[Rfam]
RNA sequence: AGUUUUCACAAUGAGGAUACAAAGCUCCCUCUUCUGAUUUUCAGGUGAGGAAAAUUGCAGGCAGAAUCGAACCUAAAUAAAUCUAGCCACUACUGAGUGA
Numbered sequence: 001a002g003u004u005u006u007c008a009c010a011a012u013g014a015g016g017a018u019a020c021a022a023a024g025c026u027c028c029c030u031c032u033u034c035u036g037a038u039u040u041u042c043a044g045g046u047g048a049g050g051a052a053a054a055u056u057g058c059a060g061g062c063a064g065a066a067u068c069g070a071a072c073c074u075a076a077a078u079a080a081a082u083c084u085a086g087c088c089a090c091u092a093c094u095g096a097g098u099g100a
Base pairs, nucleotide, nucleotide: 006100007099008098009097
Shown here is a 100-nucleotide sequence from Trifolium subterraneum, a member of the family "Small nucleolar RNA R30/Z108". The base pairs follow the family's consensus structure, which was predicted with PFOLD. Lineage of the source: Eukaryota > Streptophyta > Embryophyta > Papilionoideae > Trifolium.